[Rfam]
RNA sequence: GCCGUUGUAGCUCAGGGGUAGAGCACUCCCUUGGUAAGGGAGAGGUCGCGGGUUCAAUUCCCGCCAACGGCU
Number, nucleotide and partner (000 for none) at each position: 001g071002c070003c069004g068005u067006u066007g065008u000009a000010g024011c023012u022013c021014a000015g000016g000017g000018g000019u000020a000021g013022a012023g011024c010025a000026c042027u041028c040029c039030c038031u000032u000033g000034g000035u000036a000037a000038g030039g029040g028041a027042g026043a000044g000045g000046u000047c000048g064049c063050g062051g061052g060053u000054u000055c000056a000057a000058u000059u000060c052061c051062c050063g049064c048065c007066a006067a005068c004069g003070g002071c001072u000

The record is a 72-nucleotide sequence from Iodobacter ciconiae, which matches "tRNA" in Rfam.
About the family: Transfer RNA (tRNA) molecules are approximately 80 nucleotides in length.
It is annotated as a transfer RNA.
A search with the family's covariance model found it, with a score of 74 bits.
The organism belongs to Iodobacter, within Bacteria.
The base pairs follow the family's consensus structure, which is taken from published work.